[Rfam]
RNA sequence: UAAUUAAAUAUUAUUGUGUUUCGUAUAAUGUUGGGGAUAUGGCCCAAGAGUUUCUACCGAGCUACCGUAAAUGGCUUGACUACGAGGCGAUUGUUGUAGAGG
Numbered sequence: 001u002a003a004u005u006a007a008a009u010a011u012u013a014u015u016g017u018g019u020u021u022c023g024u025a026u027a028a029u030g031u032u033g034g035g036g037a038u039a040u041g042g043c044c045c046a047a048g049a050g051u052u053u054c055u056a057c058c059g060a061g062c063u064a065c066c067g068u069a070a071a072u073g074g075c076u077u078g079a080c081u082a083c084g085a086g087g088c089g090a091u092u093g094u095u096g097u098a099g100a101g102g
Base pairs, nucleotide, nucleotide: 018088019087020086021085022084023083024082025081029049031047032046033045034044035043058078059077060076061075062074063073064072
RNA: Purine riboswitch aptamer
Organism: Bacillus sp. FJAT-49736